[Rfam]
A member of the RNA family "Mammalian CPEB3 ribozyme" from Alligator sinensis, 76 nucleotides long. Lineage of the source: Eukaryota > Opisthokonta > Eumetazoa > Amniota > Alligator.
RNA sequence: GUUGCAAGUCUGAGGCCAUAGCAGAAGCACUCAUGGCAUGGCCAUGGCAGAUUCCAGUGAAUCUGUGAAUUCUGCU
Dot-bracket structure: .............[[[[..((((((((...........)]]]]....(((((((....)))))))....)))))))
Numbered sequence: 001g002u003u004g005c006a007a008g009u010c011u012g013a014g015g016c017c018a019u020a021g022c023a024g025a026a027g028c029a030c031u032c033a034u035g036g037c038a039u040g041g042c043c044a045u046g047g048c049a050g051a052u053u054c055c056a057g058u059g060a061a062u063c064u065g066u067g068a069a070u071u072c073u074g075c076u
Stems, first nucleotide, its partner, number of pairs: 014043004020076007027039001048065007